[Rfam]
The family of this 203-nucleotide RNA from Ictidomys tridecemlineatus is "Small nucleolar RNA SNORA73 family". The organism belongs to Ictidomys, within Eukaryota. Clan: snR30-U17 clan. About the family: U17 (SNORA73A and SNORA73B) also known as E1 belongs to the H/ACA class of small nucleolar RNAs (snoRNAs). It is annotated as an H/ACA-box small nucleolar RNA. The family has 66 seed sequences and 2,326 matches in Rfam 15.1.
RNA sequence: CCAACAUGGUUACCCCAGGAAGUCACUCUCCCUGGCCCCUGUCCAAGUGGCACAGGGGAACACAGGGCUCUGCUCCAUGAUGUCCAGGACCUUUCACAGCAUUGGAGAUGAAGCUGGGCUCUGUGUGUAUACCUGCAUAUUCCUAAAACUUCUCAGAAUCCUGUGGACAGGGACCGAGAAGAUAAACCAAGCAGAAAACAUGG
Numbered sequence: 001c002c003a004a005c006a007u008g009g010u011u012a013c014c015c016c017a018g019g020a021a022g023u024c025a026c027u028c029u030c031c032c033u034g035g036c037c038c039c040u041g042u043c044c045a046a047g048u049g050g051c052a053c054a055g056g057g058g059a060a061c062a063c064a065g066g067g068c069u070c071u072g073c074u075c076c077a078u079g080a081u082g083u084c085c086a087g088g089a090c091c092u093u094u095c096a097c098a099g100c101a102u103u104g105g106a107g108a109u110g111a112a113g114c115u116g117g118g119c120u121c122u123g124u125g126u127g128u129a130u131a132c133c134u135g136c137a138u139a140u141u142c143c144u145a146a147a148a149c150u151u152c153u154c155a156g157a158a159u160c161c162u163g164u165g166g167a168c169a170g171g172g173a174c175c176g177a178g179a180a181g182a183u184a185a186a187c188c189a190a191g192c193a194g195a196a197a198a199c200a201u202g203g
Base pairs, nucleotide, nucleotide: 001105002104003103004102007099008044009043011041012040015035016034018029019028020027047097048096049095050094056091057090062083063082064081065078133194134193135192136191138189149181150180151179152178153177154176159167160166161165